[Rfam]
RNA sequence: AGCGUAUUUUUGCUCAGUUGGAACGCGGCCACUACUUCAAACCAUGACGUCCUUUAUUGAUGAGCAGCGCCAAACUUAUGAUAUCGGGUCACUCUGCAAGCUUUUACCGAUUGCACCA
Dot-bracket structure: ................(.(((.......))).).............................................((.(.......((.((.(.((....)).).)).)).).))
RNA: ALIL pseudoknot
Organism: Neokomagataea tanensis